[Rfam]
Shown here is a 149-nucleotide sequence from Bacilli bacterium VT-13-104, a member of the family "Listeria sRNA rli38". A search with the family's covariance model found it, with a score of 50 bits. The literature on the family includes a 2009 paper in Nature by Toledo-Arana et al., "The Listeria transcriptional landscape from saprophytism to virulence".

RNA sequence: UUUGGUAGGGAAUAAACUAGCUAACUUGAUUUGAAGAGAGAACGCCUUAUUUGCCAGUGUUUAUCUUAGCCUUAAACGUACAAAAAAAUGGAUAAUGAUAUGGUUCCCUAUCAAAAAUUCUACCAUCUUAUUUUGGGUAGGGAUUAUUU
Numbered sequence: 001u002u003u004g005g006u007a008g009g010g011a012a013u014a015a016a017c018u019a020g021c022u023a024a025c026u027u028g029a030u031u032u033g034a035a036g037a038g039a040g041a042a043c044g045c046c047u048u049a050u051u052u053g054c055c056a057g058u059g060u061u062u063a064u065c066u067u068a069g070c071c072u073u074a075a076a077c078g079u080a081c082a083a084a085a086a087a088a089u090g091g092a093u094a095a096u097g098a099u100a101u102g103g104u105u106c107c108c109u110a111u112c113a114a115a116a117a118u119u120c121u122a123c124c125a126u127c128u129u130a131u132u133u134u135g136g137g138u139a140g141g142g143a144u145u146a147u148u149u
Base pairs, nucleotide, nucleotide: 008108009107010106011105012104047087048086050084051083052082053081057079059077060076061075062074063073088096089095115145116144118142119141120140121139122138123137124136125133